[Rfam]
The record is a 158-nucleotide sequence from Beta vulgaris, which matches "small nucleolar RNA snoR137" in Rfam. Lineage of the source: Eukaryota > Streptophytina > Tracheophyta > Mesangiospermae > Beta vulgaris. By type it is an H/ACA-box small nucleolar RNA. For this family Rfam cites "Mining small RNA sequencing data: a new approach to identify small nucleolar RNAs in Arabidopsis" (Chen and Wu, Nucleic Acids Res, 2009).
RNA sequence: GUUGCUUCUAAUGGUGAACUCUCUCUGUUCAAACGAAAGACGUUCUAGUUUCCGAAGCAUAAAUGAAAAUCUAAAUUGUCAGUCUUAAACAGCUCGAUGAAUGGAUUAAUCAUUUAAUCUUCACACUUUCAUCGCGUUACCUGUCUGCUGGCACAUUU
Numbered sequence: 001g002u003u004g005c006u007u008c009u010a011a012u013g014g015u016g017a018a019c020u021c022u023c024u025c026u027g028u029u030c031a032a033a034c035g036a037a038a039g040a041c042g043u044u045c046u047a048g049u050u051u052c053c054g055a056a057g058c059a060u061a062a063a064u065g066a067a068a069a070u071c072u073a074a075a076u077u078g079u080c081a082g083u084c085u086u087a088a089a090c091a092g093c094u095c096g097a098u099g100a101a102u103g104g105a106u107u108a109a110u111c112a113u114u115u116a117a118u119c120u121u122c123a124c125a126c127u128u129u130c131a132u133c134g135c136g137u138u139a140c141c142u143g144u145c146u147g148c149u150g151g152c153a154c155a156u157u158u
Stems, first nucleotide, its partner, number of pairs: 003059006016045004020040003024036001078152006091138003095134007